Overview
The family of this 130-nucleotide sequence from Phyllostomus discolor is "Small nucleolar RNA SNORA41". NCBI's taxonomy places the organism under Eukaryota, Craniata, Dipnotetrapodomorpha, Chiroptera, Phyllostomus. Its family is annotated with nucleolus and RNA processing in the Gene Ontology. ACA41 is a member of the H/ACA class of snoRNA that guide the sites of modification of uridines to pseudouridines. Pairs were carried over by alignment from the consensus structure, which was predicted with PFOLD.

RNA sequence: ACCUACUACUGGUCUGCAGCUGUUCUUAUGGUGGCAGUGGUGUCAUUCCUCUGUGGGAAAGAAACUGUUGCAUGGUUAAACACCCCUUUCUUAGCAAAACAGAAAGUGGGCAUAUAUGUGACAAACACAA
Numbered sequence: 001a002c003c004u005a006c007u008a009c010u011g012g013u014c015u016g017c018a019g020c021u022g023u024u025c026u027u028a029u030g031g032u033g034g035c036a037g038u039g040g041u042g043u044c045a046u047u048c049c050u051c052u053g054u055g056g057g058a059a060a061g062a063a064a065c066u067g068u069u070g071c072a073u074g075g076u077u078a079a080a081c082a083c084c085c086c087u088u089u090c091u092u093a094g095c096a097a098a099a100c101a102g103a104a105a106g107u108g109g110g111c112a113u114a115u116a117u118g119u120g121a122c123a124a125a126c127a128c129a130a
Base pairs, nucleotide, nucleotide: 001054002053015042016041017040019038020037021036022035070119071118072117073116074115083110084109085108086106087105088104089103090102091101